[Rfam]
RNA: Small nucleolar RNA Z155
Organism: Elaeis guineensis
Nucleotides: 076
Base pairs, nucleotide, nucleotide: 001076003074004073005072006071
Number, partner (000 for none) and nucleotide at each position: 001076c002000a003074u004073u005072g006071a007000a008000a009000u010000g011000g012000u013000g014000a015000u016000a017000a018000c019000a020000u021000u022000u023000g024000c025000u026000g027000a028000a029000a030000g031000a032000a033000a034000u035000u036000g037000u038000u039000g040000a041000u042000u043000a044000a045000g046000a047000a048000a049000a050000a051000a052000u053000u054000a055000g056000a057000u058000u059000a060000u061000a062000a063000u064000u065000a066000u067000c068000u069000g070000a071006u072005c073004a074003a075000c076001g